[Rfam]
RNA sequence: GGCCUGCUAAUAUGGUAGAAAGAGAUCUCUUUCUACUAUAUUAGCCAUUAAUUAUAGUUAUUAUACCAUUAAUUAUAGCU
Numbered sequence: 001g002g003c004c005u006g007c008u009a010a011u012a013u014g015g016u017a018g019a020a021a022g023a024g025a026u027c028u029c030u031u032u033c034u035a036c037u038a039u040a041u042u043a044g045c046c047a048u049u050a051a052u053u054a055u056a057g058u059u060a061u062u063a064u065a066c067c068a069u070u071a072a073u074u075a076u077a078g079c080u
Stems, first nucleotide, its partner, number of pairs: 006045018